[Rfam]
RNA sequence: UCGUAAGUCGCCUCACGGCAUUGGCCGUCGGCGGCGAGCUUCGUUCGUCCCAAUGGAUGUGACGGAGUUUCACCAGAAAAAGGAA
Number, nucleotide and partner (000 for none) at each position: 001u000002c000003g000004u000005a000006a000007g035008u034009c033010g032011c031012c030013u000014c000015a000016c000017g000018g025019c024020a000021u000022u000023g000024g019025c018026c000027g000028u000029c000030g012031g011032c010033g009034g008035c007036g070037a069038g068039c067040u066041u065042c064043g063044u062045u061046c059047g058048u057049c056050c055051c000052a000053a000054u000055g050056g049057a048058u047059g046060u000061g045062a044063c043064g042065g041066a040067g039068u038069u037070u036071c000072a000073c000074c000075a000076g000077a000078a000079a000080a000081a000082g000083g000084a000085a000
Source information:
Rfam assigns this 85-nucleotide RNA from Pseudomonas sp. M47T1 to the family "gyrA RNA". Taxonomically the source falls in Pseudomonas (Bacteria, Pseudomonadota, Pseudomonadales, Pseudomonadaceae). The family's RNA type in Rfam is cis-regulatory element.